[Rfam]
RNA sequence: GACUGCCACGCACCGGGAACCUCCCGGCGGUGUUGCGAGGGUGGGGGACCCACAGAUGUCCACCCACGGUGGCUUGGGGUGAAGCCGGUUCCGACCGGCCGGGCAACCUGACCGUCCGAACCCGACAGCUAACCCCGCAGGCGCACGUCAGGAAAGGA
Numbered sequence: 001g002a003c004u005g006c007c008a009c010g011c012a013c014c015g016g017g018a019a020c021c022u023c024c025c026g027g028c029g030g031u032g033u034u035g036c037g038a039g040g041g042u043g044g045g046g047g048a049c050c051c052a053c054a055g056a057u058g059u060c061c062a063c064c065c066a067c068g069g070u071g072g073c074u075u076g077g078g079g080u081g082a083a084g085c086c087g088g089u090u091c092c093g094a095c096c097g098g099c100c101g102g103g104c105a106a107c108c109u110g111a112c113c114g115u116c117c118g119a120a121c122c123c124g125a126c127a128g129c130u131a132a133c134c135c136c137g138c139a140g141g142c143g144c145a146c147g148u149c150a151g152g153a154a155a156g157g158a
Stems, first nucleotide, its partner, number of pairs: 003039001041138006051076002077123003085098004101117004

The record is a 158-nucleotide RNA from Metallococcus carri, which matches "c-di-AMP riboswitch aptamer (ydaO/yuaA leader)" in Rfam. The organism belongs to Metallococcus, within Bacteria.